[Rfam]
RNA: Molybdenum/Tungsten riboswitch aptamer (Moco RNA motif)
RNA sequence: UAAAUUAUGGUUCUCCGAGCCUGUACGCCUACGGAAAAGAUCUAUGGCUUUCAGGCCGACAGGGUUGCCUGGGAAACGAGGCAGCCUCCCUUUGGAAAGGAGAACGGCUGAUGAAUCU
Number, nucleotide and partner (000 for none) at each position: 001u000002a000003a112004a000005u000006u000007a000008u000009g000010g000011u104012u103013c102014u101015c100016c099017g000018a000019g056020c055021c054022u053023g052024u000025a050026c000027g048028c047029c046030u000031a000032c000033g043034g042035a041036a000037a000038a000039g000040a000041u035042c034043u033044a000045u000046g029047g028048c027049u000050u025051u000052c023053a022054g021055g020056c019057c000058g000059a000060c000061a000062g087063g086064g085065u084066u083067g082068c081069c080070u079071g000072g077073g000074a000075a000076a000077c072078g000079a070080g069081g068082c067083a066084g065085c064086c063087u062088c095089c094090c000091u000092u000093u000094g089095g088096a000097a000098a000099g016100g015101a014102g013103a012104a011105c000106g000107g000108c000109u000110g000111a000112u003113g000114a000115a000116u000117c000118u000